[Rfam]
RNA sequence: CCGUCCGUUCCGUGGGACGGAGUGACGGCCCCGGCCGCCCCCCGGCUAGGCUGGCCUGGUGCGCCUUCCACCGAAGACGCAAAGCCGACAGCCGUCGCAUUCCAGGGAGUACAUCCAUG
Numbered sequence: 001c002c003g004u005c006c007g008u009u010c011c012g013u014g015g016g017a018c019g020g021a022g023u024g025a026c027g028g029c030c031c032c033g034g035c036c037g038c039c040c041c042c043c044g045g046c047u048a049g050g051c052u053g054g055c056c057u058g059g060u061g062c063g064c065c066u067u068c069c070a071c072c073g074a075a076g077a078c079g080c081a082a083a084g085c086c087g088a089c090a091g092c093c094g095u096c097g098c099a100u101u102c103c104a105g106g107g108a109g110u111a112c113a114u115c116c117a118u119g
Stems, first nucleotide, its partner, number of pairs: 060081004065076004084098002087096003
The family of this 119-nucleotide RNA sequence is "Streptomyces-metH RNA".